The record is a 103-nucleotide sequence from Tissierella sp. P1, which matches "Glycine riboswitch aptamer" in Rfam. It scores 63 bits against the family's covariance model.
[Rfam]
RNA sequence: AUGACUAAUGCGGAAGAGACCAUGUUAUAUGGCGCCGAAGGAACAAGUUGAUGGGUAGCCGAUCCACAAUGAAACUCUCAGGCAAAAGGACCGUAUUGUGACA
Numbered sequence: 001a002u003g004a005c006u007a008a009u010g011c012g013g014a015a016g017a018g019a020c021c022a023u024g025u026u027a028u029a030u031g032g033c034g035c036c037g038a039a040g041g042a043a044c045a046a047g048u049u050g051a052u053g054g055g056u057a058g059c060c061g062a063u064c065c066a067c068a069a070u071g072a073a074a075c076u077c078u079c080a081g082g083c084a085a086a087a088g089g090a091c092c093g094u095a096u097u098g099u100g101a102c103a
Base pairs, nucleotide, nucleotide: 006098007097008096009095010094011093012092013091020032021031022030023029034083035082036081037079038078041077042076047070048069049068050067